[Rfam]
RNA sequence: GGCCUCACCCCAUGGUGAAAAACAAACGAAAUGCGGGCAGUACUGGUAGAUGGGGUAAAUGACCCCAGCCGACGGUAACGAAGCAAAAGAAAAUUGCAGAUUA
Numbered sequence: 001g002g003c004c005u006c007a008c009c010c011c012a013u014g015g016u017g018a019a020a021a022a023c024a025a026a027c028g029a030a031a032u033g034c035g036g037g038c039a040g041u042a043c044u045g046g047u048a049g050a051u052g053g054g055g056u057a058a059a060u061g062a063c064c065c066c067a068g069c070c071g072a073c074g075g076u077a078a079c080g081a082a083g084c085a086a087a088a089g090a091a092a093a094u095u096g097c098a099g100a101u102u103a
Stems, first nucleotide, its partner, number of pairs: 006017004041077003049070001052066004
This 103-nucleotide RNA sequence from Muribaculaceae bacterium Isolate-102 belongs to the Rfam family "RT-17 RNA". The match comes from Rfam's covariance-model search (61 bits).